[Rfam]
Nucleotides: 061
Stems, first nucleotide, its partner, number of pairs: 001018004006014003028041005
Number, partner (000 for none) and nucleotide at each position: 001018g002017g003016g004015g005000a006014c007013c008012u009000u010000c011000g012008g013007g014006g015004c016003c017002c018001u019000a020000c021000a022000c023000a024000c025000c026000a027000c028041g029040g030039a031038c032037c033000g034000a035000g036000a037032g038031g039030u040029c041028c042000a043000a044000a045000g046000c047000a048000a049000c050000g051000g052000a053000a054000g055000a056000c057000a058000g059000a060000g061000a